[Rfam]
RNA sequence: UCAUCACGUAGAGGUGAUUACUAACUUGAGUUCUACGGAACUUGAGGACAUGAUGACGUGGGGUAGAUGAUCACUGAUUAGGUCCCCGGGGGCAGGUUUUAACGACGACCUGUCCUCAUGUCUGAC
Dot-bracket structure: ........................((.((((((....)))))).))......................(...(((....).))..)....((((((............))))))............
Numbered sequence: 001u002c003a004u005c006a007c008g009u010a011g012a013g014g015u016g017a018u019u020a021c022u023a024a025c026u027u028g029a030g031u032u033c034u035a036c037g038g039a040a041c042u043u044g045a046g047g048a049c050a051u052g053a054u055g056a057c058g059u060g061g062g063g064u065a066g067a068u069g070a071u072c073a074c075u076g077a078u079u080a081g082g083u084c085c086c087c088g089g090g091g092g093c094a095g096g097u098u099u100u101a102a103c104g105a106c107g108a109c110c111u112g113u114c115c116u117c118a119u120g121u122c123u124g125a126c
Stems, first nucleotide, its partner, number of pairs: 025046002028043006069086001073083002075080001091114006